[Rfam]
RNA sequence: UGCCACAGCUCCUACUCUCUAGCUGUCCUUAUGGUAGCAGUUGUGGCAUUCCACUGUGGGAAAGAAACUUACAUGAUUAAACACCUCUUCCUUAACAAAAUAGAAGUGGGCAUAUGUAUGACGAACAGAA
Numbered sequence: 001u002g003c004c005a006c007a008g009c010u011c012c013u014a015c016u017c018u019c020u021a022g023c024u025g026u027c028c029u030u031a032u033g034g035u036a037g038c039a040g041u042u043g044u045g046g047c048a049u050u051c052c053a054c055u056g057u058g059g060g061a062a063a064g065a066a067a068c069u070u071a072c073a074u075g076a077u078u079a080a081a082c083a084c085c086u087c088u089u090c091c092u093u094a095a096c097a098a099a100a101u102a103g104a105a106g107u108g109g110g111c112a113u114a115u116g117u118a119u120g121a122c123g124a125a126c127a128g129a130a
Stems, first nucleotide, its partner, number of pairs: 003059004017046002020043006071119001073117003084110003087106003091103002
A member of the RNA family "Small nucleolar RNA SNORA41" from Odobenus rosmarus, 130 nucleotides long. Rfam's curators write: ACA41 is a member of the H/ACA class of snoRNA that guide the sites of modification of uridines to pseudouridines. Its family is annotated with nucleolus and RNA processing in the Gene Ontology. The family's consensus secondary structure was predicted with PFOLD. By type it is an H/ACA-box small nucleolar RNA.